[Rfam]
RNA sequence: CUAAUACAUCAAGAGAGAGAUUAAGUUCUCCUCCAACCUGCCAACUCCGGCAAGGUGGAAAAAAUGAUGUGGUUAACCAACAAACAUAGGAGUACAA
Numbered sequence: 001c002u003a004a005u006a007c008a009u010c011a012a013g014a015g016a017g018a019g020a021u022u023a024a025g026u027u028c029u030c031c032u033c034c035a036a037c038c039u040g041c042c043a044a045c046u047c048c049g050g051c052a053a054g055g056u057g058g059a060a061a062a063a064a065u066g067a068u069g070u071g072g073u074u075a076a077c078c079a080a081c082a083a084a085c086a087u088a089g090g091a092g093u094a095c096a097a
Stems, first nucleotide, its partner, number of pairs: 006070005015031001017030004032059003037055003040051003044093005072081003
The family of this 97-nucleotide RNA sequence is "SAM-I/IV (S-adenosyl methionine) riboswitch aptamer". The base pairs follow the family's consensus structure, which is taken from published work. Its family is annotated with regulation of gene expression and S-adenosylmethionine metabolic process in the Gene Ontology. The sequence is in the family's curated seed alignment. Clan: SAM clan. The literature on the family includes a 2008 paper in RNA by Weinberg et al., "The aptamer core of SAM-IV riboswitches mimics the ligand-binding site of SAM-I riboswitches".